Small nucleolar RNA SNORA77: a 127-nucleotide sequence from Rhinolophus ferrumequinum. Rfam links the family to the GO terms nucleolus and RNA processing. A reference for the family is Schattner et al. (2006), "A computational screen for mammalian pseudouridylation guide H/ACA RNAs", RNA. It scores 54 bits against the family's covariance model. The family's RNA type in Rfam is H/ACA-box small nucleolar RNA. The family has 19 seed sequences and 843 matches in Rfam 15.1.

RNA sequence: UCAGGAUUCACCCUGCACCCAGCUGCGGUCCCUAGUGAGUGCUGUUUCUCUCUGCUGCAGAAACAUUCCAGGGUGCCGUGCUUACCUUGGCCUGGCAGGGGUGAUGCAACAGCCCAGGGACACCCUG
Numbered sequence: 001u002c003a004g005g006a007u008u009c010a011c012c013c014u015g016c017a018c019c020c021a022g023c024u025g026c027g028g029u030c031c032c033u034a035g036u037g038a039g040u041g042c043u044g045u046u047u048c049u050c051u052c053u054g055c056u057g058c059a060g061a062a063a064c065a066u067u068c069c070a071g072g073g074u075g076c077c078g079u080g081c082u083u084a085c086c087u088u089g090g091c092c093u094g095g096c097a098g099g100g101g102u103g104a105u106g107c108a109a110c111a112g113c114c115c116a117g118g119g120a121c122a123c124c125c126u127g
Stems, first nucleotide, its partner, number of pairs: 002054003006051001015042004020037002025032001068118002071115004075110001078107003083103005